The record is a 79-nucleotide RNA sequence from Danionella cerebrum, which matches "mir-499 microRNA precursor family" in Rfam. A reference for the family is Murchison et al. (2008), "Conservation of small RNA pathways in platypus", Genome Res. Taxonomically the source falls in Danionella (Eukaryota, Bilateria, Teleostei, Otophysi). Rfam links the family to the GO terms RISC complex and miRNA-mediated post-transcriptional gene silencing.
RNA sequence: AAGAGGGAGGCAGUUAAGACUUGCAGUGAUGUUUAGAGAAACGAUACAUGAACAUCACUUUAAGUCUGUGCUGGCUCCU
Numbered sequence: 001a002a003g004a005g006g007g008a009g010g011c012a013g014u015u016a017a018g019a020c021u022u023g024c025a026g027u028g029a030u031g032u033u034u035a036g037a038g039a040a041a042c043g044a045u046a047c048a049u050g051a052a053c054a055u056c057a058c059u060u061u062a063a064g065u066c067u068g069u070g071c072u073g074g075c076u077c078c079u
Stems, first nucleotide, its partner, number of pairs: 017067007026058010
The match comes from Rfam's covariance-model search (87 bits).